[Rfam]
RNA: small nucleolar RNA snoR117
RNA sequence: GGCCUGUGAUGCAUCAAUUUGUCCGUACCAUCUGAGACCUUGUCUCUGAUGAAUGCUCAAAUUCUUUAAUCUGAGGCCU
Dot-bracket structure: ((((......................................................................)))).
Numbered sequence: 001g002g003c004c005u006g007u008g009a010u011g012c013a014u015c016a017a018u019u020u021g022u023c024c025g026u027a028c029c030a031u032c033u034g035a036g037a038c039c040u041u042g043u044c045u046c047u048g049a050u051g052a053a054u055g056c057u058c059a060a061a062u063u064c065u066u067u068a069a070u071c072u073g074a075g076g077c078c079u
Stems, first nucleotide, its partner, number of pairs: 001078004